[Rfam]
RNA sequence: GACAGUGAUGUAAAGGUCCUAUUCCAUUGCUGAAACGGCAGUGUGGACAAGUCCUGCCUGAUGUC
Numbered sequence: 001g002a003c004a005g006u007g008a009u010g011u012a013a014a015g016g017u018c019c020u021a022u023u024c025c026a027u028u029g030c031u032g033a034a035a036c037g038g039c040a041g042u043g044u045g046g047a048c049a050a051g052u053c054c055u056g057c058c059u060g061a062u063g064u065c
Base pairs, nucleotide, nucleotide: 001065002064003063004062
The record is a 65-nucleotide RNA from Salarias fasciatus, which matches "Small nucleolar RNA SNORD98" in Rfam. Gene Ontology terms of the family: nucleolus and RNA processing. On this family, see Huttenhofer et al., EMBO J 2001: "RNomics: an experimental approach that identifies 201 candidates for novel, small, non-messenger RNAs in mouse". The source organism's lineage runs through Eukaryota, Neopterygii, Euteleosteomorpha, Salariinae and Salarias. The base pairs follow the family's consensus structure.